terC RNA: a 54-nucleotide RNA from Bradyrhizobium sp. Leo170. The family's consensus secondary structure is taken from published work. The match comes from Rfam's covariance-model search (54 bits). By type it is a cis-regulatory element.
[Rfam]
RNA sequence: GUACCAGGCCGGGCCCCUCUGGCAGCCGACAGGCUGCGAUGUCGGACUGGAGUU
Numbered sequence: 001g002u003a004c005c006a007g008g009c010c011g012g013g014c015c016c017c018u019c020u021g022g023c024a025g026c027c028g029a030c031a032g033g034c035u036g037c038g039a040u041g042u043c044g045g046a047c048u049g050g051a052g053u054u
Stems, first nucleotide, its partner, number of pairs: 006048002009045004022037006

Overview:
NCBI's taxonomy places the organism under Bacteria, Pseudomonadati, Pseudomonadota, Nitrobacteraceae, Bradyrhizobium.